[Rfam]
RNA: MIR6217 microRNA precursor family
Organism: Miscanthus lutarioriparius
RNA sequence: UGGCCGCAGAAUAAGUUAUUGUGUGGCCACUUAGAGUUACGAUAUUUACUAUACUAAUUUACGAGAUUAUGGUAACUCCUUCGUAAGUGAUUUAUUAUAGCAUUAUGGUAAGUAUCAUUUUGAAUUAUAGUAACACAUGUAUCGUAAAUGUGUAUUGUUAUUAUCGUAAAUUGGUACAAACAUUAUCGUAAAUCAAGGUGGCCGUAGAAUAAGUUAUUUUAUGAUCA
Numbered sequence: 001u002g003g004c005c006g007c008a009g010a011a012u013a014a015g016u017u018a019u020u021g022u023g024u025g026g027c028c029a030c031u032u033a034g035a036g037u038u039a040c041g042a043u044a045u046u047u048a049c050u051a052u053a054c055u056a057a058u059u060u061a062c063g064a065g066a067u068u069a070u071g072g073u074a075a076c077u078c079c080u081u082c083g084u085a086a087g088u089g090a091u092u093u094a095u096u097a098u099a100g101c102a103u104u105a106u107g108g109u110a111a112g113u114a115u116c117a118u119u120u121u122g123a124a125u126u127a128u129a130g131u132a133a134c135a136c137a138u139g140u141a142u143c144g145u146a147a148a149u150g151u152g153u154a155u156u157g158u159u160a161u162u163a164u165c166g167u168a169a170a171u172u173g174g175u176a177c178a179a180a181c182a183u184u185a186u187c188g189u190a191a192a193u194c195a196a197g198g199u200g201g202c203c204g205u206a207g208a209a210u211a212a213g214u215u216a217u218u219u220u221a222u223g224a225u226c227a
Base pairs, nucleotide, nucleotide: 001227002226003225005223006222008220009219010218011217012216013215014214016212017211018210019209020208022206023205024204025203026202027201028200029199030198031197032196037191038190039189040188041187042186043185044184046182050178052176053175054174055173056172057171058170059169060168061167062166065165066164067163069161070160071159074155080147081146087142088141089140092137093132094131095130096129097128098127099126100125103122108116